Nucleotides: 096
Stems, first nucleotide, its partner, number of pairs: 001092008010084002015079001016075006027060002030057002
Number, partner (000 for none) and nucleotide at each position: 001092g002091g003090c004089c005088g006087g007086u008085c009000c010084g011083a012000u013000g014000g015079u016075a017074g018073u019072g020071g021070g022000u023000a024000g025000g026000c027060a028059g029000a030057a031056a032000u033000u034000a035000u036000u037000a038000c039000u040000g041000g042000u043000a044000g045000a046000u047000a048000a049000a050000g051000g052000a053000a054000c055000c056031u057030u058000u059028c060027u061000a062000u063000a064000u065000u066000c067000c068000a069000c070021c071020c072019c073018g074017c075016u076000g077000c078000u079015a080000a081000c082000c083011u084010c085008g086007a087006c088005u089004g090003g091002u092001c093000u094000u095000u096000u
The record is a 96-nucleotide RNA from Passerina amoena, which matches "Y RNA" in Rfam. On this family, see Teunissen et al., Nucleic Acids Res 2000: "Conserved features of Y RNAs: a comparison of experimentally derived secondary structures". Rfam classes the family as a non-coding RNA gene. Lineage of the source: Eukaryota > Coelurosauria > Aves > Telluraves > Passerina. Pairs were carried over by alignment from the consensus structure, which is taken from published work.